[Rfam]
RNA: Bacterial RNase P class B
Organism: Spiroplasma sp. WSS
RNA sequence: AAAAAUGAGCUAAUCGCUGCAUUAGUAUGUAGAGGAAAGUCCACGCUCGCACUUUCUGCGAUGAAAGUAAUGUUUGUGUUAGAGAAAACAAUAACUCUAAGCAGUAAUUCUGACGGCUGACAAAAACCUAAGUUUUUUAUUAAAUAAGGUUCUAGUCUAUAAAAGUGUCAUAGAGACGAGUUUUAAGGAAACUUAAAAGCUGGAACGAGAUAAACCCCACAAGCGAGAAACCCAAAUUUAGGUAGGGGCAUUGGUUUAUUAGAAAUGAAUAAUAAACCGAACUAUUGUUUACAAUAGUAGAUAAAUGGUUAGCACUUGCAAGAAGCAAGAACAGAACGUGGCUUAUGAUU
Numbered sequence: 001a002a003a004a005a006u007g008a009g010c011u012a013a014u015c016g017c018u019g020c021a022u023u024a025g026u027a028u029g030u031a032g033a034g035g036a037a038a039g040u041c042c043a044c045g046c047u048c049g050c051a052c053u054u055u056c057u058g059c060g061a062u063g064a065a066a067g068u069a070a071u072g073u074u075u076g077u078g079u080u081a082g083a084g085a086a087a088a089c090a091a092u093a094a095c096u097c098u099a100a101g102c103a104g105u106a107a108u109u110c111u112g113a114c115g116g117c118u119g120a121c122a123a124a125a126a127c128c129u130a131a132g133u134u135u136u137u138u139a140u141u142a143a144a145u146a147a148g149g150u151u152c153u154a155g156u157c158u159a160u161a162a163a164a165g166u167g168u169c170a171u172a173g174a175g176a177c178g179a180g181u182u183u184u185a186a187g188g189a190a191a192c193u194u195a196a197a198a199g200c201u202g203g204a205a206c207g208a209g210a211u212a213a214a215c216c217c218c219a220c221a222a223g224c225g226a227g228a229a230a231c232c233c234a235a236a237u238u239u240a241g242g243u244a245g246g247g248g249c250a251u252u253g254g255u256u257u258a259u260u261a262g263a264a265a266u267g268a269a270u271a272a273u274a275a276a277c278c279g280a281a282c283u284a285u286u287g288u289u290u291a292c293a294a295u296a297g298u299a300g301a302u303a304a305a306u307g308g309u310u311a312g313c314a315c316u317u318g319c320a321a322g323a324a325g326c327a328a329g330a331a332c333a334g335a336a337c338g339u340g341g342c343u344u345a346u347g348a349u350u
Base pairs, nucleotide, nucleotide: 004350005349006348008346009313010312011311012310013309014308015307017032018031019030020029021028022027037344038343039342041341042340043339044338045337046227047226048225049224050223051068052067053066054065055064056063074222075221076220077219078218079100080099081098082097083096084095101114102112103111104110115217116216119157120156121155125151126150127149128148132145133144134143165215166214167211168210169209181198182197183196184195185194186193187192231247232246233245251280252279253278254277255276256275257274281298282297283296284295285294286293315329316328317327318326319325